A member of the RNA family "mir-1 microRNA precursor family" from Saccoglossus kowalevskii, 78 nucleotides long. The family's consensus secondary structure was predicted with RNAalifold. Gene Ontology terms of the family: RISC complex and miRNA-mediated post-transcriptional gene silencing. It is one of the family's seed sequences. For this family Rfam cites "An extensive class of small RNAs in Caenorhabditis elegans" (Lee and Ambros, Science, 2001). This family represents the microRNA (miRNA) mir-1 family. miRNAs are transcribed as ~70nt precursors (modelled here) and subsequently processed by the Dicer enzyme to give a ~22nt product. In this case the mature sequence comes from the 3' arm of the precursor. The extents of the hairpin precursors are not generally known and are estimated based on hairpin prediction. The products are thought to have regulatory roles through complementarity to mRNA. The involvement of Dicer in miRNA processing suggests a relationship with the phenomenon of RNA interference. miRNAs are numbered based on the sequence of the mature RNA. This family also contains the mir-206 from human, which appears to be related to mir-1.
RNA sequence: GUUUACAGAACGUACUUCUUUAUAAUUCCAUACCUUAUUCCCAUCUGUAUGGAAUGUAAUGAAGUAUGUAUUGUUAGU
Numbered sequence: 001g002u003u004u005a006c007a008g009a010a011c012g013u014a015c016u017u018c019u020u021u022a023u024a025a026u027u028c029c030a031u032a033c034c035u036u037a038u039u040c041c042c043a044u045c046u047g048u049a050u051g052g053a054a055u056g057u058a059a060u061g062a063a064g065u066a067u068g069u070a071u072u073g074u075u076a077g078u
Stems, first nucleotide, its partner, number of pairs: 007072002010069009020059005028052005